[Rfam]
RNA sequence: GAAAAUAGAUUAAGCACUAUUUAGGCCAGUAAGUAGAAGUAAACCUUCUGCUAUAAAUCAUCAAAUUGACGGGAACACCCUAAAGCAAUCUCAACCAAGCGGAAAUGGUAACAUAUUUCGUGGCACAGGUAAUGACUCGUGGUUAUCCUUUUUUUAGGUUAUUUGAUAAACUAAAAAAAAAAGAUUAGGUAAAAUCGAGAUUGAUACACGUAAGUGAAUGGGCAAUCCGCAGCCAAGCACCCCUUUUCUGCUUACUUCAUAGUGAUAUUAAGCAAAAAGAAGGGGUGUGCAGUUCAUCGACUAAAUGUUGGUUGGCUUUUUUAUUCGAGAAUAAAAAGGCUUAAGAUAUAGUCAAGCCUCAUCCGAAAGGAUGCA
Numbered sequence: 001g002a003a004a005a006u007a008g009a010u011u012a013a014g015c016a017c018u019a020u021u022u023a024g025g026c027c028a029g030u031a032a033g034u035a036g037a038a039g040u041a042a043a044c045c046u047u048c049u050g051c052u053a054u055a056a057a058u059c060a061u062c063a064a065a066u067u068g069a070c071g072g073g074a075a076c077a078c079c080c081u082a083a084a085g086c087a088a089u090c091u092c093a094a095c096c097a098a099g100c101g102g103a104a105a106u107g108g109u110a111a112c113a114u115a116u117u118u119c120g121u122g123g124c125a126c127a128g129g130u131a132a133u134g135a136c137u138c139g140u141g142g143u144u145a146u147c148c149u150u151u152u153u154u155u156a157g158g159u160u161a162u163u164u165g166a167u168a169a170a171c172u173a174a175a176a177a178a179a180a181a182a183g184a185u186u187a188g189g190u191a192a193a194a195u196c197g198a199g200a201u202u203g204a205u206a207c208a209c210g211u212a213a214g215u216g217a218a219u220g221g222g223c224a225a226u227c228c229g230c231a232g233c234c235a236a237g238c239a240c241c242c243c244u245u246u247u248c249u250g251c252u253u254a255c256u257u258c259a260u261a262g263u264g265a266u267a268u269u270a271a272g273c274a275a276a277a278a279g280a281a282g283g284g285g286u287g288u289g290c291a292g293u294u295c296a297u298c299g300a301c302u303a304a305a306u307g308u309u310g311g312u313u314g315g316c317u318u319u320u321u322u323a324u325u326c327g328a329g330a331a332u333a334a335a336a337a338g339g340c341u342u343a344a345g346a347u348a349u350a351g352u353c354a355a356g357c358c359u360c361a362u363c364c365g366a367a368a369g370g371a372u373g374c375a
Stems, first nucleotide, its partner, number of pairs: 056313005062307002067231002070229004078222003232293002237288004245282005297354001299353005315340009360373005
Background:
The family of this 375-nucleotide RNA sequence from Sclerotinia nivalis is "Group I catalytic intron". For this family Rfam cites "Self-splicing of group I introns" (Cech, Annu Rev Biochem, 1990). Rfam links the family to the GO term Group I intron splicing. The source organism's lineage runs through Eukaryota, Fungi, Ascomycota, Pezizomycotina and Sclerotinia.